[Rfam]
RNA sequence: GUGAGCCAGGAAAAGGAUGAAAGAUUCUAAGAGCACUAGGAAUAGGAACAUGAAGGAAAGCAUUAUUGUGCAUGGAGAUUUAGGCCUGAUGUUUUCCUGAUGCCUCCUAUUCCUAAGGCUCUUAGGUUCUCCUUCCCUUUCCUUAUGGCU
Numbered sequence: 001g002u003g004a005g006c007c008a009g010g011a012a013a014a015g016g017a018u019g020a021a022a023g024a025u026u027c028u029a030a031g032a033g034c035a036c037u038a039g040g041a042a043u044a045g046g047a048a049c050a051u052g053a054a055g056g057a058a059a060g061c062a063u064u065a066u067u068g069u070g071c072a073u074g075g076a077g078a079u080u081u082a083g084g085c086c087u088g089a090u091g092u093u094u095u096c097c098u099g100a101u102g103c104c105u106c107c108u109a110u111u112c113c114u115a116a117g118g119c120u121c122u123u124a125g126g127u128u129c130u131c132c133u134u135c136c137c138u139u140u141c142c143u144u145a146u147g148g149c150u
Stems, first nucleotide, its partner, number of pairs: 009141004015135003022130002026126009037115011049102003053098001055097007
Rfam assigns this 150-nucleotide RNA sequence from Zea mays to the family "MIR2118 microRNA precursor family". The base pairs follow the family's consensus structure, which was predicted with RNAalifold. Lineage of the source: Eukaryota > Tracheophyta > Mesangiospermae > Panicoideae > Zea. For this family Rfam cites "Clusters and superclusters of phased small RNAs in the developing inflorescence of rice" (Johnson et al., Genome Res, 2009).